The record is an 82-nucleotide sequence from Juglans regia, which matches "Small nucleolar RNA snoR53Y" in Rfam.
RNA sequence: GUUCCCCAUGAUGCUUCAAUAUACACCAUGCUAAUGCUGAUCAAUCCAUGAUCGAUCCCUUCUUUCAUAUGCUGAGGGAAUG
Numbered sequence: 001g002u003u004c005c006c007c008a009u010g011a012u013g014c015u016u017c018a019a020u021a022u023a024c025a026c027c028a029u030g031c032u033a034a035u036g037c038u039g040a041u042c043a044a045u046c047c048a049u050g051a052u053c054g055a056u057c058c059c060u061u062c063u064u065u066c067a068u069a070u071g072c073u074g075a076g077g078g079a080a081u082g
Stems, first nucleotide, its partner, number of pairs: 001081005
The base pairs follow the family's consensus structure, which was predicted with WAR. The family's RNA type in Rfam is C/D-box small nucleolar RNA. On this family, see Brown et al., RNA 2001: "Multiple snoRNA gene clusters from Arabidopsis".